[Rfam]
RNA sequence: CGCGCGCCCCAACGGCUUCCUGGCGGGGCGCUACAAGAGCAAUCAACGGAGCA
Numbered sequence: 001c002g003c004g005c006g007c008c009c010c011a012a013c014g015g016c017u018u019c020c021u022g023g024c025g026g027g028g029c030g031c032u033a034c035a036a037g038a039g040c041a042a043u044c045a046a047c048g049g050a051g052c053a
Stems, first nucleotide, its partner, number of pairs: 004031007013022002015052003019049002